Shown here is a 108-nucleotide RNA sequence from Streptomyces sp. ICC1, a member of the family "Streptomyces RNA 4115". The pairing is the family consensus, mapped onto this sequence. Rfam's curators write: Identified by deep sequencing of transcriptome at the end of exponential growth phase. Sequencing size consistent with notrthern blot size. Streptomyces specific. The family's RNA type in Rfam is small RNA. A search with the family's covariance model found it, with a score of 77 bits.
RNA sequence: GCGUGGGUCGGCCCGCCGCGUGGAUCAGGCGGGCCGGGGGACGCCGCUGCCUCAAUCCCCGCGGGUGGCGGAACGGUCCGGGGGGCGGAUGCCGUCUCCCGGGCCGCG
Numbered sequence: 001g002c003g004u005g006g007g008u009c010g011g012c013c014c015g016c017c018g019c020g021u022g023g024a025u026c027a028g029g030c031g032g033g034c035c036g037g038g039g040g041a042c043g044c045c046g047c048u049g050c051c052u053c054a055a056u057c058c059c060c061g062c063g064g065g066u067g068g069c070g071g072a073a074c075g076g077u078c079c080g081g082g083g084g085g086c087g088g089a090u091g092c093c094g095u096c097u098c099c100c101g102g103g104c105c106g107c108g
Stems, first nucleotide, its partner, number of pairs: 001107002006074001008072001009036009037042001044071009075105013